[Rfam]
The record is an 84-nucleotide sequence from Phyllostomus discolor, which matches "mir-425 microRNA precursor family" in Rfam. Gene Ontology terms of the family: miRNA-mediated post-transcriptional gene silencing and RISC complex.
RNA sequence: AGAGUUCCCUGGAAUGAUAGGAUCAUUCCGGUUGAGUAGCCCCCAAGAAGCUAUCCGGAAUGUCGUAUCUGCCCAGUGCUCUUU
Numbered sequence: 001a002g003a004g005u006u007c008c009c010u011g012g013a014a015u016g017a018u019a020g021g022a023u024c025a026u027u028c029c030g031g032u033u034g035a036g037u038a039g040c041c042c043c044c045a046a047g048a049a050g051c052u053a054u055c056c057g058g059a060a061u062g063u064c065g066u067a068u069c070u071g072c073c074c075a076g077u078g079c080u081c082u083u084u
Stems, first nucleotide, its partner, number of pairs: 007078001009076004016069004021064003027059005033053002036051002